[Rfam]
RNA sequence: UUUAGUUAUUUUAGAAAUCACACACAUACCAUGACUGAAAAUCGGGGUGCCAAACGGUCGAUUUUUCAGGGUAUGUGGAGGCUAAAC
Numbered sequence: 001u002u003u004a005g006u007u008a009u010u011u012u013a014g015a016a017a018u019c020a021c022a023c024a025c026a027u028a029c030c031a032u033g034a035c036u037g038a039a040a041a042u043c044g045g046g047g048u049g050c051c052a053a054a055c056g057g058u059c060g061a062u063u064u065u066u067c068a069g070g071g072u073a074u075g076u077g078g079a080g081g082c083u084a085a086a087c
Stems, first nucleotide, its partner, number of pairs: 023077008036068005041062004049058003
Rfam assigns this 87-nucleotide RNA sequence from Mergibacter septicus to the family "t44 RNA". The organism belongs to Mergibacter, within Bacteria. From the family's description: This family consists of a number of bacterial RNA genes of between 135 and 170 bases in length. The t44 gene has been identified in several species of enteric bacteria but homologs have also been identified in Pseudomonas and Coxiella species. The t44 gene is found between the map and rpsB genes in all species in the full alignment apart from Shigella flexneri.